[Rfam]
RNA sequence: UUACUAUGUCUGCUCGAACUUAAGAGGAAUGGAACGGAGGAACCAAGUUUUGGGGCUUAUCUUAAAGGGAGAUUUGAGAGUUUAAUUCUGGCUUCAAUAGCUCAAAAUUAUAAACUCAUCAUCUCAGAGGAAGGACAUCUCUCAGUCCUAGCCCGUCAGCUAACUUCGUCGGUGUUGAGAGGAGACUGA
Numbered sequence: 001u002u003a004c005u006a007u008g009u010c011u012g013c014u015c016g017a018a019c020u021u022a023a024g025a026g027g028a029a030u031g032g033a034a035c036g037g038a039g040g041a042a043c044c045a046a047g048u049u050u051u052g053g054g055g056c057u058u059a060u061c062u063u064a065a066a067g068g069g070a071g072a073u074u075u076g077a078g079a080g081u082u083u084a085a086u087u088c089u090g091g092c093u094u095c096a097a098u099a100g101c102u103c104a105a106a107a108u109u110a111u112a113a114a115c116u117c118a119u120c121a122u123c124u125c126a127g128a129g130g131a132a133g134g135a136c137a138u139c140u141c142u143c144a145g146u147c148c149u150a151g152c153c154c155g156u157c158a159g160c161u162a163a164c165u166u167c168g169u170c171g172g173u174g175u176u177g178a179g180a181g182g183a184g185a186c187u188g189a
Stems, first nucleotide, its partner, number of pairs: 011174004019032002034169006044052002053154003061130003133148004
The family of this 189-nucleotide sequence from Oscillatoria sp. FACHB-1407 is "c-di-AMP riboswitch aptamer (ydaO/yuaA leader)".
It scores 56 bits against the family's covariance model.
From the family's description: This family represents a conserved RNA structure found upstream of the ydaO and yuaA genes in Bacillus subtilis and related genes in other bacteria.